[Rfam]
RNA sequence: AGCGCUGUAUUUAGACCUGUGGAUGGGAAUUAUCUUGGUGAUGCUGUAGUGCAGAAGAAUUGCUGGCUCUUUCUGUUGGACAGCUGACUUUGUGCCAUUCUGCUGUUGCUGUAUGGGGUUAAGGAACAUAA
Number, nucleotide and partner (000 for none) at each position: 001a000002g052003c051004g050005c049006u048007g047008u046009a045010u000011u000012u000013a000014g000015a039016c038017c037018u000019g000020u000021g034022g033023a000024u032025g000026g000027g000028a000029a000030u000031u000032a024033u022034c021035u000036u000037g017038g016039u015040g000041a000042u000043g000044c000045u009046g008047u007048a006049g005050u004051g003052c002053a000054g000055a000056a000057g000058a000059a000060u126061u125062g000063c123064u122065g120066g119067c118068u117069c116070u115071u000072u000073c000074u113075g112076u000077u000078g109079g000080a107081c105082a104083g103084c102085u000086g100087a099088c000089u000090u000091u000092g000093u000094g000095c000096c000097a000098u000099u087100c086101u000102g084103c083104u082105g081106u000107u080108g000109c078110u000111g000112u075113a074114u000115g070116g069117g068118g067119u066120u065121a000122a064123g063124g000125a061126a060127c000128a000129u000130a000131a000

Small nucleolar RNA SNORA46: a 131-nucleotide RNA from Callorhinus ursinus. A search with the family's covariance model found it, with a score of 89 bits. NCBI's taxonomy places the organism under Eukaryota, Opisthokonta, Dipnotetrapodomorpha, Otariidae, Callorhinus. From the family's description: ACA46 is a member of the H/ACA class of snoRNA that guide the sites of modification of uridines to pseudouridines. The family's RNA type in Rfam is H/ACA-box small nucleolar RNA. The family has 22 seed sequences and 582 matches in Rfam 15.1.